[Rfam]
RNA sequence: UUCACGUGCUAAGUAGUAGUGCCGUAGGUGAUGAAAAAGAAAUUCACCUAGACACGAUUACUUUUCACGUGGG
Numbered sequence: 001u002u003c004a005c006g007u008g009c010u011a012a013g014u015a016g017u018a019g020u021g022c023c024g025u026a027g028g029u030g031a032u033g034a035a036a037a038a039g040a041a042a043u044u045c046a047c048c049u050a051g052a053c054a055c056g057a058u059u060a061c062u063u064u065u066c067a068c069g070u071g072g073g
Stems, first nucleotide, its partner, number of pairs: 001073007011063007019055001025050006